[Rfam]
RNA sequence: CCGGUGCUGGAUUCAAGUAAUCCAGGAUAGGCUGUGACUUCCCCUUUCAGCCUAUUCUUGAUUACUUGCGGCCAGCGCCGU
Numbered sequence: 001c002c003g004g005u006g007c008u009g010g011a012u013u014c015a016a017g018u019a020a021u022c023c024a025g026g027a028u029a030g031g032c033u034g035u036g037a038c039u040u041c042c043c044c045u046u047u048c049a050g051c052c053u054a055u056u057c058u059u060g061a062u063u064a065c066u067u068g069c070g071g072c073c074a075g076c077g078c079c080g081u
Stems, first nucleotide, its partner, number of pairs: 002080004007075004012070001014068009024058010

Overview: Shown here is an 81-nucleotide sequence from Aquarana catesbeiana, a member of the family "mir-26 microRNA precursor family". Taxonomically the source falls in Aquarana (Eukaryota, Eumetazoa, Chordata, Dipnotetrapodomorpha). It scores 79 bits against the family's covariance model.